This 174-nucleotide sequence from Pan troglodytes belongs to the Rfam family "U1 spliceosomal RNA". The family's consensus secondary structure is taken from published work. Rfam links the family to the GO terms U1 snRNP, pre-mRNA 5'-splice site binding and mRNA 5'-splice site recognition.
Nucleotides: 174
Base pairs, nucleotide, nucleotide: 012132013131014130015129016048018046019045020044021043023042024041025040026039027038049100050099051098052097056093057092058091060089061088062087064085102127103126104125105123106122107121109119110118148173149172150171151170152169153168157164158163
Number, partner (000 for none) and nucleotide at each position: 001000a002000u003000a004000c005000u006000u007000a008000c009000c010000u011000g012132g013131c014130a015129g016048g017000a018046g019045a020044g021043a022000u023042a024041c025040u026039a027038c028000g029000a030000u031000c032000a033000c034000g035000a036000a037000g038027g039026u040025g041024g042023u043021u044020u045019u046018c047000c048016c049100a050099g051098g052097g053000c054000a055000a056093g057092g058091c059000u060089u061088a062087u063000c064085c065000a066000u067000u068000g069000u070000u071000a072000u073000c074000c075000a076000u077000u078000g079000u080000a081000c082000u083000c084000c085064g086000u087062a088061u089060g090000u091058g092057c093056u094000g095000a096000c097052c098051c099050c100049u101000g102127c103126g104125a105123u106122u107121u108000c109119c110118c111000c112000a113000a114000a115000g116000g117000u118110g119109g120000g121107a122106a123105a124000c125104u126103c127102g128000a129015c130014u131013g132012c133000a134000u135000g136000a137000u138000u139000u140000g141000u142000g143000g144000u145000a146000g147000u148173g149172g150171g151170g152169g153168a154000c155000u156000a157164c158163g159000u160000u161000c162000g163158c164157g165000c166000u167000u168153u169152c170151c171150c172149c173148u174000g